[Rfam]
RNA sequence: UAUCAAAGCGCAGGUCGUAGGUGAGAUGGCUCCGAAUGCCAUGUAUAUUGGUAGUAGCUGCGGUUGCAGGCUAUAUAUAGCUAGCCAAUUCGGGGCAGCGAGCUUCAUCUCUCCUCGACUGAAGCCUCUAGCGUU
Dot-bracket structure: ....(...(....((((.(((.(((((((...........................................................................))))))).)))))))....)..)........

The family of this 135-nucleotide RNA sequence from Malus baccata is "MIR5225 microRNA precursor family". The family has 6 seed sequences and 63 matches in Rfam 15.1. Rfam links the family to the GO terms miRNA-mediated post-transcriptional gene silencing and RISC complex.